Rfam assigns this 87-nucleotide RNA from Sinobaca qinghaiensis to the family "BsrC". A reference for the family is Saito et al. (2008), "Novel small RNA-encoding genes in the intergenic regions of Bacillus subtilis", Gene. Taxonomically the source falls in Sinobaca (Bacteria, Bacillota, Bacilli, Sporolactobacillaceae). It is annotated as a small RNA. From the family's description: The 301 nucleotide sequence from Kouji Nakamura has been trimmed to a highly conserved ~85 nucleotide long core to form this family.

RNA sequence: AACGUCUUAAACAAUGUAAGCCCUACCUUCUCUUACAUUCUUACGGCUCUUUAGCCGAUCCAGGUGAUUAAAAUGUUUCUAUUCAUA
Numbered sequence: 001a002a003c004g005u006c007u008u009a010a011a012c013a014a015u016g017u018a019a020g021c022c023c024u025a026c027c028u029u030c031u032c033u034u035a036c037a038u039u040c041u042u043a044c045g046g047c048u049c050u051u052u053a054g055c056c057g058a059u060c061c062a063g064g065u066g067a068u069u070a071a072a073a074u075g076u077u078u079c080u081a082u083u084c085a086u087a
Stems, first nucleotide, its partner, number of pairs: 036066002040063002044057005